[Rfam]
RNA sequence: ACGCCCCUGCCGGGAGCGCACCCAGAGGGCCGGAACUCCGGCUCACCGUGCCGCUGCCGGAUGGUCUUCCGAACCGAGGCGUCAUG
Numbered sequence: 001a002c003g004c005c006c007c008u009g010c011c012g013g014g015a016g017c018g019c020a021c022c023c024a025g026a027g028g029g030c031c032g033g034a035a036c037u038c039c040g041g042c043u044c045a046c047c048g049u050g051c052c053g054c055u056g057c058c059g060g061a062u063g064g065u066c067u068u069c070c071g072a073a074c075c076g077a078g079g080c081g082u083c084a085u086g
Stems, first nucleotide, its partner, number of pairs: 001082005010060004015055004019050003025047001027044007062076003
A member of the RNA family "dauA ncRNA motif" from Streptomyces sp. NL15-2K, 86 nucleotides long. The base pairs follow the family's consensus structure, which is taken from published work. The literature on the family includes a 2024 paper in Nucleic Acids Res by Narunsky et al., "The discovery of novel noncoding RNAs in 50 bacterial genomes". Taxonomically the source falls in Streptomyces (Bacteria, Bacillati, Actinomycetota, Kitasatosporales). Rfam describes the family as follows. dauA ncRNA motif was reported as a strong cis regulatory motif candidate, with potential to be a cis regulatory riboswitch type, it have been identified in genomes of the genus Streptomyces. By type it is a cis-regulatory element.